[Rfam]
Shown here is a 76-nucleotide RNA from Salvator merianae, a member of the family "Small nucleolar RNA SNORD19". A reference for the family is Huttenhofer et al. (2001), "RNomics: an experimental approach that identifies 201 candidates for novel, small, non-messenger RNAs in mouse", EMBO J. Gene Ontology terms of the family: nucleolus and RNA processing. It is annotated as a C/D-box small nucleolar RNA.
RNA sequence: GAGAAAUGAGGAUAUUUGCUGUGUGUCUUACUGUUAUAGUGAAGACUUCAGAUCCAACUCUGAUCUUACUGUGUGC
Numbered sequence: 001g002a003g004a005a006a007u008g009a010g011g012a013u014a015u016u017u018g019c020u021g022u023g024u025g026u027c028u029u030a031c032u033g034u035u036a037u038a039g040u041g042a043a044g045a046c047u048u049c050a051g052a053u054c055c056a057a058c059u060c061u062g063a064u065c066u067u068a069c070u071g072u073g074u075g076c
Stems, first nucleotide, its partner, number of pairs: 001067004